[Rfam]
RNA sequence: GCCUAUGAUGAUGGAUCCAAGUUUAUGGGAUGUAGACAGCUUCAAGUCCCUUUUUUACAAGGAGAACUUACUUGGAGCUGCUACAUACAAAUGACAUCAGACUUUUUUGAGGC
Numbered sequence: 001g002c003c004u005a006u007g008a009u010g011a012u013g014g015a016u017c018c019a020a021g022u023u024u025a026u027g028g029g030a031u032g033u034a035g036a037c038a039g040c041u042u043c044a045a046g047u048c049c050c051u052u053u054u055u056u057a058c059a060a061g062g063a064g065a066a067c068u069u070a071c072u073u074g075g076a077g078c079u080g081c082u083a084c085a086u087a088c089a090a091a092u093g094a095c096a097u098c099a100g101a102c103u104u105u106u107u108u109g110a111g112g113c
Stems, first nucleotide, its partner, number of pairs: 001113003048062002051059001
The record is a 113-nucleotide RNA sequence from Elaeis guineensis, which matches "Small nucleolar RNA Z278" in Rfam. Gene Ontology terms of the family: RNA processing and nucleolus. On this family, see Chen et al., Nucleic Acids Res 2003: "The high diversity of snoRNAs in plants: identification and comparative study of 120 snoRNA genes from Oryza sativa". snoZ278 is a C/D box small nucleolar RNA. Its methylation guide targets have not been reported. A search with the family's covariance model found it, with a score of 63 bits. Pairs were carried over by alignment from the consensus structure, which was predicted with PFOLD.